Source information:
Eukaryotic large subunit ribosomal RNA: a 471-nucleotide part of an RNA from Araneus ventricosus.
RNA sequence: CGGGUGGGCCCUCGAAAUCCUGUGGCGGGAGGAUUCAGUUUUGUGGCGUGGACUCUACGUUUGAGAAUUGACUAUGGCUCCGCGGAGGCGGCCUCUCAUUCAUAGAGCUUUCGCGUUAUAGAACGCAUUUGUUUCCCGUCCGAAGGACCCCGCAACCGGUUACGAGACGGCCUUAAGGGCGUGCAACGGCAGUUGGCCGGUGGUUCUUUCACUAGGAUCGUCGGCUGUUAGCCAGCGCGCCGCACGGCUCGUAGCGUGACCGUGGUGUCGCGAGGCCUACUUAGGCUUCUUCGCCUCCUCCGUUCGCGGAUGCCUGGACGAAGCGGCAGGGGUGAGCACUUCUGAGGGCGCACGGACUGACUCCGUGGCCCAUCGGAAGACAGCUUCCUCGUUGGCUGCUGUGGACCAGUCGGAGGUCGGCGGUUCGCGGGGAGUAGAUCGGUCACCCACCCGACCCGUCUUGAAACACGG
Numbered sequence: 001c002g003g004g005u006g007g008g009c010c011c012u013c014g015a016a017a018u019c020c021u022g023u024g025g026c027g028g029g030a031g032g033a034u035u036c037a038g039u040u041u042u043g044u045g046g047c048g049u050g051g052a053c054u055c056u057a058c059g060u061u062u063g064a065g066a067a068u069u070g071a072c073u074a075u076g077g078c079u080c081c082g083c084g085g086a087g088g089c090g091g092c093c094u095c096u097c098a099u100u101c102a103u104a105g106a107g108c109u110u111u112c113g114c115g116u117u118a119u120a121g122a123a124c125g126c127a128u129u130u131g132u133u134u135c136c137c138g139u140c141c142g143a144a145g146g147a148c149c150c151c152g153c154a155a156c157c158g159g160u161u162a163c164g165a166g167a168c169g170g171c172c173u174u175a176a177g178g179g180c181g182u183g184c185a186a187c188g189g190c191a192g193u194u195g196g197c198c199g200g201u202g203g204u205u206c207u208u209u210c211a212c213u214a215g216g217a218u219c220g221u222c223g224g225c226u227g228u229u230a231g232c233c234a235g236c237g238c239g240c241c242g243c244a245c246g247g248c249u250c251g252u253a254g255c256g257u258g259a260c261c262g263u264g265g266u267g268u269c270g271c272g273a274g275g276c277c278u279a280c281u282u283a284g285g286c287u288u289c290u291u292c293g294c295c296u297c298c299u300c301c302g303u304u305c306g307c308g309g310a311u312g313c314c315u316g317g318a319c320g321a322a323g324c325g326g327c328a329g330g331g332g333u334g335a336g337c338a339c340u341u342c343u344g345a346g347g348g349c350g351c352a353c354g355g356a357c358u359g360a361c362u363c364c365g366u367g368g369c370c371c372a373u374c375g376g377a378a379g380a381c382a383g384c385u386u387c388c389u390c391g392u393u394g395g396c397u398g399c400u401g402u403g404g405a406c407c408a409g410u411c412g413g414a415g416g417u418c419g420g421c422g423g424u425u426c427g428c429g430g431g432g433a434g435u436a437g438a439u440c441g442g443u444c445a446c447c448c449a450c451c452c453g454a455c456c457c458g459u460c461u462u463g464a465a466a467c468a469c470g471g
Stems, first nucleotide, its partner, number of pairs: 001453008010442002019076001022075004028069001078430002081427002084424001456471004
Taxonomically the source falls in Araneus (Eukaryota, Ecdysozoa, Araneoidea, Araneidae). It scores 3018 bits against the family's covariance model. The family has 88 seed sequences and 107,465 matches in Rfam 15.1.